[Rfam]
RNA: Bacillaceae-1 RNA
RNA sequence: GACAGAGCAACGUCGACUAAGUUCUGGUACGUCCUGUACCAAACGUCGACGCAGGCACUAGCACAUCCUGUGCC
Numbered sequence: 001g002a003c004a005g006a007g008c009a010a011c012g013u014c015g016a017c018u019a020a021g022u023u024c025u026g027g028u029a030c031g032u033c034c035u036g037u038a039c040c041a042a043a044c045g046u047c048g049a050c051g052c053a054g055g056c057a058c059u060a061g062c063a064c065a066u067c068c069u070g071u072g073c074c
Stems, first nucleotide, its partner, number of pairs: 011051007026040005054074005